[Rfam]
RNA sequence: UCUGACCUUAGAGGCAUUAUGGGUGUGGCAACUGUGUCACAUGUGUGUCAGUAGGUGGCAGAGAAGAUAGAGGCUAUGUCUGUGUUCAGUGUUCUGACCUACGAGCAUCUGAAUGAUUAGUAGCCUAACAUA
Numbered sequence: 001u002c003u004g005a006c007c008u009u010a011g012a013g014g015c016a017u018u019a020u021g022g023g024u025g026u027g028g029c030a031a032c033u034g035u036g037u038c039a040c041a042u043g044u045g046u047g048u049c050a051g052u053a054g055g056u057g058g059c060a061g062a063g064a065a066g067a068u069a070g071a072g073g074c075u076a077u078g079u080c081u082g083u084g085u086u087c088a089g090u091g092u093u094c095u096g097a098c099c100u101a102c103g104a105g106c107a108u109c110u111g112a113a114u115g116a117u118u119a120g121u122a123g124c125c126u127a128a129c130a131u132a
Stems, first nucleotide, its partner, number of pairs: 002061003006057001007055004013049003019046003024041006071126007083115002086112004090107005

Source information:
This 132-nucleotide RNA from Rattus norvegicus belongs to the Rfam family "Small nucleolar RNA SNORA17". The literature on the family includes a 1997 paper in J Mol Biol by Ofengand and Bakin, "Mapping to nucleotide resolution of pseudouridine residues in large subunit ribosomal RNAs from representative eukaryotes, prokaryotes, archaebacteria, mitochondria and chloroplasts". Rfam classes the family as an H/ACA-box small nucleolar RNA. Rfam describes the family as follows. snoRNA ACA 17 belongs to the H/ACA family of snoRNAs and is predicted to guide pseudouridylation of the 28S rRNA at positions U4659 and U4598. It shares the same host gene together with ACA43. The family is grouped with related families in Rfam's "SNORA17 clan". The family has 53 seed sequences and 5,784 matches in Rfam 15.1. Its family is annotated with nucleolus and RNA processing in the Gene Ontology.